[Rfam]
RNA sequence: GAAAAAACCAGCGCGAAAAAGGCGCCGGCGAGGAAAACAGGCAAGACCGUGAAGUACCGAGCAGGGAUCGGCAAACGGCGACGCGUUGCGUCAGAAGACCGGGGGUAGUGGUUAAAACGUGCAAACCCUGCAACCAAUGUGGACGGAUUCUAGCAGGGUUUUAUAGAUCGUCAACACUAUGAAUAAGCAAAUCUAUAACUAAUUGUAA
Numbered sequence: 001g002a003a004a005a006a007a008c009c010a011g012c013g014c015g016a017a018a019a020a021g022g023c024g025c026c027g028g029c030g031a032g033g034a035a036a037a038c039a040g041g042c043a044a045g046a047c048c049g050u051g052a053a054g055u056a057c058c059g060a061g062c063a064g065g066g067a068u069c070g071g072c073a074a075a076c077g078g079c080g081a082c083g084c085g086u087u088g089c090g091u092c093a094g095a096a097g098a099c100c101g102g103g104g105g106u107a108g109u110g111g112u113u114a115a116a117a118c119g120u121g122c123a124a125a126c127c128c129u130g131c132a133a134c135c136a137a138u139g140u141g142g143a144c145g146g147a148u149u150c151u152a153g154c155a156g157g158g159u160u161u162u163a164u165a166g167a168u169c170g171u172c173a174a175c176a177c178u179a180u181g182a183a184u185a186a187g188c189a190a191a192u193c194u195a196u197a198a199c200u201a202a203u204u205g206u207a208a
Stems, first nucleotide, its partner, number of pairs: 008028002011025004047111004055073001057071003080092005138176003143171004149167004